[Rfam]
The family of this 241-nucleotide sequence from Oryza meyeriana is "Early nodulin 40". On this family, see Gultyaev and Roussis, Nucleic Acids Res 2007: "Identification of conserved secondary structures and expansion segments in enod40 RNAs reveals new enod40 homologues in plants". The organism belongs to Oryza meyeriana, within Eukaryota.
RNA sequence: AUGGUGGGCGCAUGGCAGGGGCAUCUUCAUGGUUCUUGAGAUCAGGAGCAGCAUAAGCAAUAUGAGGAUGAAGAAGAGUGGCUGGGCUGUUCCUUCUCCUCCUCCUUCUCAAGAACUCUUCAGUUUGUCCAUGCCUUUCAUGGCCUAAUUCCUGGAUUCCAGAAUCUCUGGCUGGCUCAGGAAGGUAUGAACAAACCGGCAAGUCAUAAAUCGGCGAUGGUGAGCUCCUGACAGGAGUCUU
Numbered sequence: 001a002u003g004g005u006g007g008g009c010g011c012a013u014g015g016c017a018g019g020g021g022c023a024u025c026u027u028c029a030u031g032g033u034u035c036u037u038g039a040g041a042u043c044a045g046g047a048g049c050a051g052c053a054u055a056a057g058c059a060a061u062a063u064g065a066g067g068a069u070g071a072a073g074a075a076g077a078g079u080g081g082c083u084g085g086g087c088u089g090u091u092c093c094u095u096c097u098c099c100u101c102c103u104c105c106u107u108c109u110c111a112a113g114a115a116c117u118c119u120u121c122a123g124u125u126u127g128u129c130c131a132u133g134c135c136u137u138u139c140a141u142g143g144c145c146u147a148a149u150u151c152c153u154g155g156a157u158u159c160c161a162g163a164a165u166c167u168c169u170g171g172c173u174g175g176c177u178c179a180g181g182a183a184g185g186u187a188u189g190a191a192c193a194a195a196c197c198g199g200c201a202a203g204u205c206a207u208a209a210a211u212c213g214g215c216g217a218u219g220g221u222g223a224g225c226u227c228c229u230g231a232c233a234g235g236a237g238u239c240u241u
Stems, first nucleotide, its partner, number of pairs: 065100003117194001120191001134181003224238004